[Rfam]
RNA: Small nucleolar RNA Z199
Organism: Morus notabilis
RNA sequence: GAAUCAGUUGAUGAGAGGAAAACUGCGACAGUAUGAUGGAUUCAUUUCAUGAUUCUCUGUACUUAAGUCUCUGAUGAUU
Number, nucleotide and partner (000 for none) at each position: 001g079002a078003a000004u077005c076006a075007g000008u000009u000010g000011a000012u000013g000014a000015g000016a000017g000018g000019a000020a000021a000022a000023c000024u000025g000026c000027g000028a000029c000030a000031g000032u000033a000034u000035g000036a000037u000038g048039g047040a046041u000042u000043c000044a000045u000046u040047u039048c038049a000050u000051g000052a000053u000054u000055c000056u000057c000058u000059g000060u000061a000062c000063u000064u000065a000066a000067g000068u000069c000070u000071c000072u000073g000074a000075u006076g005077a004078u002079u001